Annotation:
A member of the RNA family "mir-146 microRNA precursor family" from Oryzias latipes, 91 nucleotides long. Rfam links the family to the GO terms RISC complex and miRNA-mediated post-transcriptional gene silencing.

RNA sequence: AGAAGUGCUCUACUAUGAGAACUGAAUUCCAUAGAUGGUAGCUUUUCUAGGUGUCAUCUAUGGGCUCAGUUCUUUUGGCAUGGUACUGGUU
Numbered sequence: 001a002g003a004a005g006u007g008c009u010c011u012a013c014u015a016u017g018a019g020a021a022c023u024g025a026a027u028u029c030c031a032u033a034g035a036u037g038g039u040a041g042c043u044u045u046u047c048u049a050g051g052u053g054u055c056a057u058c059u060a061u062g063g064g065c066u067c068a069g070u071u072c073u074u075u076u077g078g079c080a081u082g083g084u085a086c087u088g089g090u091u
Base pairs, nucleotide, nucleotide: 008082013077018073019072020071021070022069023068024067025066033059034058035057036056